[Rfam]
RNA: Small Cajal body specific RNA 6
Organism: Toxostoma redivivum
RNA sequence: GGUCUGUGAUGAAUAGUAAAAGGUCUGAUUAUCCCAAGACUUGCAGUUCCAUGCCCUCUUCUCCCAGCAGUUUCUCCCCAGCCGCAGCACAGCAAUGGUGUGGCUGGCAGAGAGUUUGCUGACAGUGUGAGAUGUGCUCAGGUCGUGAUCACCUGGAGUAGCGGAGACAUGACUGGGAUCAGCAUCCAACAGUCCUGCUUGAAGGAGUUUGGGGUCUUGGAUUGGUCUAAAUGGACAUGUGAUCUGACUUUUCUGCUGAGACC
Numbered sequence: 001g002g003u004c005u006g007u008g009a010u011g012a013a014u015a016g017u018a019a020a021a022g023g024u025c026u027g028a029u030u031a032u033c034c035c036a037a038g039a040c041u042u043g044c045a046g047u048u049c050c051a052u053g054c055c056c057u058c059u060u061c062u063c064c065c066a067g068c069a070g071u072u073u074c075u076c077c078c079c080a081g082c083c084g085c086a087g088c089a090c091a092g093c094a095a096u097g098g099u100g101u102g103g104c105u106g107g108c109a110g111a112g113a114g115u116u117u118g119c120u121g122a123c124a125g126u127g128u129g130a131g132a133u134g135u136g137c138u139c140a141g142g143u144c145g146u147g148a149u150c151a152c153c154u155g156g157a158g159u160a161g162c163g164g165a166g167a168c169a170u171g172a173c174u175g176g177g178a179u180c181a182g183c184a185u186c187c188a189a190c191a192g193u194c195c196u197g198c199u200u201g202a203a204g205g206a207g208u209u210u211g212g213g214g215u216c217u218u219g220g221a222u223u224g225g226u227c228u229a230a231a232u233g234g235a236c237a238u239g240u241g242a243u244c245u246g247a248c249u250u251u252u253c254u255g256c257u258g259a260g261a262c263c
Stems, first nucleotide, its partner, number of pairs: 001263004037245003041241001048221004061207004065121006078107009129187001131186005145173002148170002152166001154164001
Dot-bracket structure: ((((................................(((.(......((((.........((((((((((.......(((((((((............)))))))))........)))))).......(.(((((.........((.((..(.(.........).)..)).))........))))))................))))..........))))...................).)))..............))))